[Rfam]
RNA sequence: AACUUAAUCUGUACUACCCUUCAUAUAUCCUCGAUGAUAUGGAUCGAAAGUCUCUACCGGGCCGCCGUAAAUGGCCUGACUAUGAAGGCAGUAAUUUCGGGA
Numbered sequence: 001a002a003c004u005u006a007a008u009c010u011g012u013a014c015u016a017c018c019c020u021u022c023a024u025a026u027a028u029c030c031u032c033g034a035u036g037a038u039a040u041g042g043a044u045c046g047a048a049a050g051u052c053u054c055u056a057c058c059g060g061g062c063c064g065c066c067g068u069a070a071a072u073g074g075c076c077u078g079a080c081u082a083u084g085a086a087g088g089c090a091g092u093a094a095u096u097u098c099g100g101g102a
Base pairs, nucleotide, nucleotide: 018088019087020086021085022084023083024082025081031047032046033045034044035043058078059077060076061075062074063073064072

Shown here is a 102-nucleotide sequence from Bacillus sp. B-jedd, a member of the family "Purine riboswitch aptamer". Pairs were carried over by alignment from the consensus structure, which is taken from published work. Lineage of the source: Bacteria > Bacillati > Bacillota > Bacillaceae > Bacillus. Rfam links the family to the GO term purine nucleobase biosynthetic process.